[Rfam]
The record is a 100-nucleotide sequence from Methanosarcina acetivorans, which matches "Pyrrolysine insertion sequence transposase 2" in Rfam. Lineage of the source: Archaea > Methanobacteriota > Methanomicrobia > Methanosarcina > Methanosarcina acetivorans. For this family Rfam cites "Effects of using coding potential, sequence conservation and mRNA structure conservation for predicting pyrroly-sine containing genes" (Theil Have et al., BMC Bioinformatics, 2013). The family's consensus secondary structure was predicted with WAR. The family's RNA type in Rfam is cis-regulatory element. Rfam links the family to the GO term pyrrolysine incorporation.
RNA sequence: UAGAUAAAAUACCAUUCGCCGGAAUACUGCGAUCAUUGUGGUCAUCAUCUUGAAGAUACUGAAGUUCAGGACUAUGAACGUAGGCAAGAAGCUGAAAUUC
Numbered sequence: 001u002a003g004a005u006a007a008a009a010u011a012c013c014a015u016u017c018g019c020c021g022g023a024a025u026a027c028u029g030c031g032a033u034c035a036u037u038g039u040g041g042u043c044a045u046c047a048u049c050u051u052g053a054a055g056a057u058a059c060u061g062a063a064g065u066u067c068a069g070g071a072c073u074a075u076g077a078a079c080g081u082a083g084g085c086a087a088g089a090a091g092c093u094g095a096a097a098u099u100c
Stems, first nucleotide, its partner, number of pairs: 027083005040073004060068002